[Rfam]
RNA: mir-8517 microRNA precursor family
Organism: Plutella xylostella
RNA sequence: UUACUGACGCUUUAGCUAUUGAACUGUCACUCUCUGACAGAGAACAAUUUAUUCUUUGACGGAGAGGGACAAAACAGUUCAAUAGCUAAAGCGUCCACUAAC
Numbered sequence: 001u002u003a004c005u006g007a008c009g010c011u012u013u014a015g016c017u018a019u020u021g022a023a024c025u026g027u028c029a030c031u032c033u034c035u036g037a038c039a040g041a042g043a044a045c046a047a048u049u050u051a052u053u054c055u056u057u058g059a060c061g062g063a064g065a066g067g068g069a070c071a072a073a074a075c076a077g078u079u080c081a082a083u084a085g086c087u088a089a090a091g092c093g094u095c096c097a098c099u100a101a102c
Base pairs, nucleotide, nucleotide: 001101002100003099005097006096010091011090012089013088014087015086016085017084018083019082020081021080022079023078024077025076026075027074028058029057043053044052046050